[Rfam]
RNA sequence: AAAUGCAUUACAGGGCAAGAUCUCUAUUGGCAGGAAACCAUUACUUGAACUUUGCAUCUCUUUAUGCAUUUCUUUGUCGUGAGUUUCUGCCAAAGGAGAUUUGCCCGGUAAUUCUUCU
Number, nucleotide and partner (000 for none) at each position: 001a000002a000003a000004u000005g114006c000007a112008u111009u110010a000011c108012a000013g106014g105015g104016c103017a102018a101019g100020a000021u000022c098023u097024c096025u095026a000027u000028u092029g091030g090031c089032a088033g087034g086035a085036a084037a000038c000039c000040a000041u000042u000043a000044c000045u000046u000047g000048a000049a000050c000051u000052u000053u000054g000055c000056a000057u000058c000059u000060c000061u000062u000063u000064a000065u000066g000067c000068a000069u000070u000071u000072c000073u000074u000075u000076g000077u000078c000079g000080u000081g000082a000083g000084u036085u035086u034087c033088u032089g031090c030091c029092a028093a000094a000095g025096g024097a023098g022099a000100u019101u018102u017103g016104c015105c014106c013107g000108g011109u000110a009111a008112u007113u000114c005115u000116u000117c000118u000